[Rfam]
RNA sequence: GUGUGCGAAUGAUAACUACUGACGAAAGAGCUGUCUGCUCAGUCUGUGGUUGGAUGUAGUCACAC
Number, nucleotide and partner (000 for none) at each position: 001g065002u064003g063004u062005g061006c000007g000008a000009a000010u000011g000012a000013u000014a051015a050016c049017u048018a047019c046020u000021g044022a043023c042024g000025a000026a000027a000028g000029a039030g038031c037032u000033g000034u000035c000036u000037g031038c030039u029040c000041a000042g023043u022044c021045u000046g019047u018048g017049g016050u015051u014052g000053g000054a000055u000056g000057u000058a000059g000060u000061c005062a004063c003064a002065c001
Description: Selenocysteine insertion sequence 1: a 65-nucleotide RNA sequence. About the family: The incorporation of selenocysteine into a protein sequence is directed by an in-frame UGA codon (usually a stop codon) within the coding region of the mRNA. Selenoprotein mRNAs contain a conserved secondary structure in the 3' UTR that is required for the distinction of UGA stop from UGA selenocysteine. The selenocysteine insertion sequence (SECIS) is around 60 nt in length and adopts a hairpin structure which is sufficiently well-defined and conserved to act as a computational screen for selenoprotein genes. The sequence is in the family's curated seed alignment. Pairs were carried over by alignment from the consensus structure, which is taken from published work.